[Rfam]
RNA: Flavo-1 RNA
Organism: Leptospira biflexa
RNA sequence: AAUGCGCCAGGGAUUGCAGCGGAAAUCCUUUCGCAAUGCGAAAGAUUGGAGCGGAAAGCGCGGUCGCUU
Numbered sequence: 001a002a003u004g005c006g007c008c009a010g011g012g013a014u015u016g017c018a019g020c021g022g023a024a025a026u027c028c029u030u031u032c033g034c035a036a037u038g039c040g041a042a043a044g045a046u047u048g049g050a051g052c053g054g055a056a057a058g059c060g061c062g063g064u065c066g067c068u069u
Stems, first nucleotide, its partner, number of pairs: 010061001012059001014057002019052002024047004030042005